[Rfam]
RNA sequence: AUUGUUCCCAGGGGGUGGCCAGGGUCUGAUGACCUGAACUGUAAUGGCCUGAGACGUGAAUAUUUACCCACGGUAAAUCGCGAACCCCUUGAACCUGAUCCGGUUAAUACCGGCGUAGGAAUGGGGAGCUUAACGGCC
Numbered sequence: 001a002u003u004g005u006u007c008c009c010a011g012g013g014g015g016u017g018g019c020c021a022g023g024g025u026c027u028g029a030u031g032a033c034c035u036g037a038a039c040u041g042u043a044a045u046g047g048c049c050u051g052a053g054a055c056g057u058g059a060a061u062a063u064u065u066a067c068c069c070a071c072g073g074u075a076a077a078u079c080g081c082g083a084a085c086c087c088c089u090u091g092a093a094c095c096u097g098a099u100c101c102g103g104u105u106a107a108u109a110c111c112g113g114c115g116u117a118g119g120a121a122u123g124g125g126g127a128g129c130u131u132a133a134c135g136g137c138c
Stems, first nucleotide, its partner, number of pairs: 006126005011088004016082001017049005056081004094119004100113004
A member of the RNA family "TPP riboswitch aptamer (THI element)" from Bacterioplanoides sp. SCSIO 12839, 138 nucleotides long. Lineage of the source: Bacteria > Pseudomonadati > Oceanospirillales > Oceanospirillaceae > Bacterioplanoides. Gene Ontology term of the family: thiamine pyrophosphate binding.